[Rfam]
RNA sequence: GUCGUUGGAUCUGCAAGUUUUUGGAAUGCUCCAAACUC
Numbered sequence: 001g002u003c004g005u006u007g008g009a010u011c012u013g014c015a016a017g018u019u020u021u022u023g024g025a026a027u028g029c030u031c032c033a034a035a036c037u038c
Base pairs, nucleotide, nucleotide: 005016006015007014020035021034022033023032024031025030
Plastid psbT antisense RNA: a 38-nucleotide RNA from Corchorus olitorius. Pairs were carried over by alignment from the consensus structure, which was predicted with LocARNA. Rfam describes the family as follows. Plastid-psbT-asRNA is an antisense RNA (asRNA) motif reported in Plastids It has been shown that psbT expression is controlled by two antisense RNAs originated from psbN transcription by the nuclear-encoded polymerase (NEP), in which the short antisense RNA hybridizes to psbT CDS, thereby stabilizing psbT transcript while blocking its translation during photooxidative stress.